[Rfam]
Notes
Rfam assigns this 101-nucleotide RNA from Artemisia annua to the family "Small nucleolar RNA Z103". The source organism's lineage runs through Eukaryota, Tracheophyta, Gunneridae, Asteraceae and Artemisia. For this family Rfam cites "The high diversity of snoRNAs in plants: identification and comparative study of 120 snoRNA genes from Oryza sativa" (Chen et al., Nucleic Acids Res, 2003). The base pairs follow the family's consensus structure, which was predicted with PFOLD. The match comes from Rfam's covariance-model search (86 bits).
RNA sequence: AUGAUAUGAUGAUUAUUUCCCCAGAUGAUCGAAUAUGAAAUAUCUGAGCGCUCUUUAUUUUUCUCUUUUGGGAGAAAAACCAAGCCAGAAAUCUGAUCCAU
Numbered sequence: 001a002u003g004a005u006a007u008g009a010u011g012a013u014u015a016u017u018u019c020c021c022c023a024g025a026u027g028a029u030c031g032a033a034u035a036u037g038a039a040a041u042a043u044c045u046g047a048g049c050g051c052u053c054u055u056u057a058u059u060u061u062u063c064u065c066u067u068u069u070g071g072g073a074g075a076a077a078a079a080c081c082a083a084g085c086c087a088g089a090a091a092u093c094u095g096a097u098c099c100a101u
Stems, first nucleotide, its partner, number of pairs: 001101002003098002